The family of this 79-nucleotide RNA sequence from Flavobacterium crassostreae is "Flavo-1 RNA". Rfam classes the family as a small RNA. The family's consensus secondary structure is taken from published work. The match comes from Rfam's covariance-model search (49 bits). The source organism's lineage runs through Bacteria, Pseudomonadati, Bacteroidota, Flavobacteriaceae and Flavobacterium. The family has 201 seed sequences and 7,497 matches in Rfam 15.1.
RNA sequence: UUUUUGCAUUAGGGAUGGUAGCGGCAUCCUUUGAUAGAAUGCAAUGGAAUCAAAGAUACAGCGGACAGCCCGACCGUAG
Numbered sequence: 001u002u003u004u005u006g007c008a009u010u011a012g013g014g015a016u017g018g019u020a021g022c023g024g025c026a027u028c029c030u031u032u033g034a035u036a037g038a039a040u041g042c043a044a045u046g047g048a049a050u051c052a053a054a055g056a057u058a059c060a061g062c063g064g065a066c067a068g069c070c071c072g073a074c075c076g077u078a079g
Stems, first nucleotide, its partner, number of pairs: 012071003016067002021062002026057003032052004